[Rfam]
RNA sequence: GUACCGGUUGGGAGUUAUACCGCAGUGGCCCAUAACUGUAUAUCGGAGGAGAGCGACGUCAGAUAUACAGACGGUGC
Numbered sequence: 001g002u003a004c005c006g007g008u009u010g011g012g013a014g015u016u017a018u019a020c021c022g023c024a025g026u027g028g029c030c031c032a033u034a035a036c037u038g039u040a041u042a043u044c045g046g047a048g049g050a051g052a053g054c055g056a057c058g059u060c061a062g063a064u065a066u067a068c069a070g071a072c073g074g075u076g077c
Base pairs, nucleotide, nucleotide: 001077002076003075004074005073006072009032010031011030012029037069038068039067040066041065042064043063044062
Shown here is a 77-nucleotide RNA from Allocoleopsis franciscana, a member of the family "CyVA-1 RNA". From the family's description: Cyanobacteria, Acidobacteria (1 example), Verrucomicrobia (1 example). Rfam's curators put it in the seed alignment.